[Rfam]
RNA sequence: GUUGACCCCCAGCACAGCACCGGGCAGGGGUGGGGGACCCACUGACGCCUCGCUGUCCCAGCCGGGCGUCGGCCUCGUCCGCACGAGGCUCGGGGUGAAGCCGCCCUCCAGCGGCCGGGCAACCUUCCGCGCCCGAACCCGACAGCUCACCUCACAGGCGUGCUGAAGGGAACC
Number, nucleotide and partner (000 for none) at each position: 001g159002u158003u157004g000005a000006c000007c029008c028009c027010c000011a000012g000013c000014a000015c000016a000017g000018c000019a000020c000021c000022g000023g000024g000025c000026a000027g009028g008029g007030g155031u154032g153033g152034g151035g150036g000037a000038c000039c000040c092041a000042c000043u000044g000045a000046c000047g000048c000049c000050u000051c000052g000053c000054u000055g000056u000057c000058c000059c000060a000061g000062c000063c000064g000065g000066g000067c000068g000069u000070c000071g000072g000073c000074c000075u000076c000077g000078u000079c000080c000081g000082c000083a000084c000085g000086a000087g000088g000089c000090u000091c000092g040093g140094g139095g138096u000097g000098a000099a000100g000101c114102c113103g112104c111105c000106c000107u000108c000109c000110a000111g104112c103113g102114g101115c000116c000117g134118g133119g132120c131121a000122a000123c000124c000125u000126u000127c000128c000129g000130c000131g120132c119133c118134c117135g000136a000137a000138c095139c094140c093141g000142a000143c000144a000145g000146c000147u000148c000149a000150c035151c034152u033153c032154a031155c030156a000157g003158g002159c001160g000161u000162g000163c000164u000165g000166a000167a000168g000169g000170g000171a000172a000173c000174c000
RNA: c-di-AMP riboswitch aptamer (ydaO/yuaA leader)
Organism: Hamadaea sp.